[Rfam]
Nucleotides: 100
Stems, first nucleotide, its partner, number of pairs: 018086001020084001022082004029049006058076005
Number, partner (000 for none) and nucleotide at each position: 001000u002000a003000g004000a005000a006000a007000u008000u009000a010000a011000u012000u013000g014000a015000a016000a017000u018086u019000a020084u021000a022082u023081g024080u025079a026000u027000a028000a029049c030048c031047u032046c033045a034044a035000u036000a037000a038000u039000a040000c041000g042000g043000c044034u045033u046032g047031a048030g049029g050000g051000u052000c053000u054000c055000u056000a057000c058076c059075a060074g061073g062072a063000a064000c065000c066000g067000u068000a069000a070000a071000c072062u073061c074060c075059u076058g077000a078000u079025u080024a081023c082022a083000g084020a085000a086018a087000a088000u089000g090000u091000c092000u093000u094000u095000u096000c097000a098000u099000u100000u